[Rfam]
RNA sequence: GUUGAGUGGGAAUAAAGAGCUAACAUAAUAUGAAUGCGAAACACCUAUUUAGCAACAUUUAGGAGCAUGUAAAACGGAUAGAAACAACUAAUUUUAUAUCGUUCCCUGCCGAAAACCCUGCCAAGAAUAUUUCUUAGCAGGGUUUUUAUU
Numbered sequence: 001g002u003u004g005a006g007u008g009g010g011a012a013u014a015a016a017g018a019g020c021u022a023a024c025a026u027a028a029u030a031u032g033a034a035u036g037c038g039a040a041a042c043a044c045c046u047a048u049u050u051a052g053c054a055a056c057a058u059u060u061a062g063g064a065g066c067a068u069g070u071a072a073a074a075c076g077g078a079u080a081g082a083a084a085c086a087a088c089u090a091a092u093u094u095u096a097u098a099u100c101g102u103u104c105c106c107u108g109c110c111g112a113a114a115a116c117c118c119u120g121c122c123a124a125g126a127a128u129a130u131u132u133c134u135u136a137g138c139a140g141g142g143u144u145u146u147u148a149u150u
Stems, first nucleotide, its partner, number of pairs: 008106005050084001053081001055079001058074003062070001086094002113146003116142006123135003